The record is a 100-nucleotide RNA sequence from Treponema vincentii, which matches "TD-2 RNA" in Rfam. Clan: TD (Treponema denticola) motifs.

Nucleotides: 100
Base pairs, nucleotide, nucleotide: 001018002017003016004015005014006013034060035059036058038057039056040055041054042053043052044051045050063096064095065094066093067092068091069090070089071088072087073086074085075084076083
Number, partner (000 for none) and nucleotide at each position: 001018a002017c003016u004015g005014c006013c007000a008000c009000g010000g011000a012000c013006g014005g015004c016003a017002g018001u019000g020000g021000u022000u023000c024000u025000a026000c027000g028000c029000c030000u031000c032000u033000g034060c035059g036058a037000u038057g039056u040055u041054u042053u043052g044051u045050g046000c047000a048000c049000g050045c051044a052043c053042a054041a055040a056039a057038c058036u059035c060034g061000c062000c063096u064095u065094c066093a067092a068091c069090u070089g071088a072087u073086g074085u075084a076083c077000a078000c079000g080000g081000a082000u083076g084075u085074a086073c087072a088071u089070c090069a091068g092067u093066u094065g095064a096063a097000g098000a099000u100000g
A reference for the family is Weinberg et al. (2007), "Identification of 22 candidate structured RNAs in bacteria using the CMfinder comparative genomics pipeline", Nucleic Acids Res.